The record is a 76-nucleotide RNA sequence from Aotus nancymaae, which matches "mir-320 microRNA precursor family" in Rfam. Pairs were carried over by alignment from the consensus structure, which was predicted with RNAalifold. Gene Ontology terms of the family: negative regulation of gene expression, miRNA-mediated post-transcriptional gene silencing and cellular response to glucose stimulus. The organism belongs to Aotus, within Eukaryota.
RNA sequence: AAAAAAGGGGGCCUUCUCUUCCCGGUUCUUCCCGGAGUUGGGAAAAGCCGGGUUAAGAGGGCAAAAAAAAAAAAAA
Numbered sequence: 001a002a003a004a005a006a007g008g009g010g011g012c013c014u015u016c017u018c019u020u021c022c023c024g025g026u027u028c029u030u031c032c033c034g035g036a037g038u039u040g041g042g043a044a045a046a047g048c049c050g051g052g053u054u055a056a057g058a059g060g061g062c063a064a065a066a067a068a069a070a071a072a073a074a075a076a
Base pairs, nucleotide, nucleotide: 014059015058016057017056021052022051023050024049025048029044030043031042032041033040034039